[Rfam]
RNA sequence: AUCCUUUGGAGAGACAGGAAAAGCAUCUGAUACUCCCAUUUUACAGAUGAGACAAAAAAAGAGAUGCAGGGACAUGGCCUGACCUGCCCAAGGAU
Numbered sequence: 001a002u003c004c005u006u007u008g009g010a011g012a013g014a015c016a017g018g019a020a021a022a023g024c025a026u027c028u029g030a031u032a033c034u035c036c037c038a039u040u041u042u043a044c045a046g047a048u049g050a051g052a053c054a055a056a057a058a059a060a061g062a063g064a065u066g067c068a069g070g071g072a073c074a075u076g077g078c079c080u081g082a083c084c085u086g087c088c089c090a091a092g093g094a095u
Stems, first nucleotide, its partner, number of pairs: 001095006009088001013031001015029003022080002033061001034052002037049005066087005
Rfam assigns this 95-nucleotide RNA from Trichechus manatus to the family "skipping-rope RNA". The match comes from Rfam's covariance-model search (37 bits).